This 139-nucleotide RNA sequence from Nicotiana sylvestris belongs to the Rfam family "MIR396 microRNA precursor family". A reference for the family is Jones-Rhoades and Bartel (2004), "Computational identification of plant microRNAs and their targets, including a stress-induced miRNA", Mol Cell.

RNA sequence: CUUUGUAUUUUUCCACAGCUUUCUUGAACUGCAUAUAUAUUAGAAAAUUCACACCAUAUAUAACCAAUUAUCAUUAUUGGAGGUGAAAAUAAAAAAAAAAAUUGUUGCGGUUCAAUAAAGUUGUGGGAAGAUACAGAUA
Numbered sequence: 001c002u003u004u005g006u007a008u009u010u011u012u013c014c015a016c017a018g019c020u021u022u023c024u025u026g027a028a029c030u031g032c033a034u035a036u037a038u039a040u041u042a043g044a045a046a047a048u049u050c051a052c053a054c055c056a057u058a059u060a061u062a063a064c065c066a067a068u069u070a071u072c073a074u075u076a077u078u079g080g081a082g083g084u085g086a087a088a089a090u091a092a093a094a095a096a097a098a099a100a101a102u103u104g105u106u107g108c109g110g111u112u113c114a115a116u117a118a119a120g121u122u123g124u125g126g127g128a129a130g131a132u133a134c135a136g137a138u139a
Stems, first nucleotide, its partner, number of pairs: 003136005013126003017122006024115004029110005